[Rfam]
RNA sequence: AAAGUUCUUCGGGGUGAGGUGAAAUUCCUCGAUCGGCGGUGACAGGCCGCGACUCCCGUGAAAAUGGGACUGAACCGGUGCAACUCCGGUCCCGACGGUAUAGUCCGGAUGGAAGAAGAAAGGA
Dot-bracket structure: ....((((((......(((.......)))..[[((((((.....[[))))...((............))....(((((.......)))))]])).(((....]]))).......))))))....
Numbered sequence: 001a002a003a004g005u006u007c008u009u010c011g012g013g014g015u016g017a018g019g020u021g022a023a024a025u026u027c028c029u030c031g032a033u034c035g036g037c038g039g040u041g042a043c044a045g046g047c048c049g050c051g052a053c054u055c056c057c058g059u060g061a062a063a064a065u066g067g068g069a070c071u072g073a074a075c076c077g078g079u080g081c082a083a084c085u086c087c088g089g090u091c092c093c094g095a096c097g098g099u100a101u102a103g104u105c106c107g108g109a110u111g112g113a114a115g116a117a118g119a120a121a122g123g124a
Stems, first nucleotide, its partner, number of pairs: 005120006017029003032104002034094002036050004045092002054069002074090005096107003

Rfam assigns this 124-nucleotide RNA from a Candidatus Zixiibacteriota bacterium to the family "FMN riboswitch aptamer (RFN element)".
It scores 98 bits against the family's covariance model.
Rfam links the family to the GO term FMN binding.
Lineage of the source: Bacteria > Pseudomonadati > Candidatus Zixiibacteriota.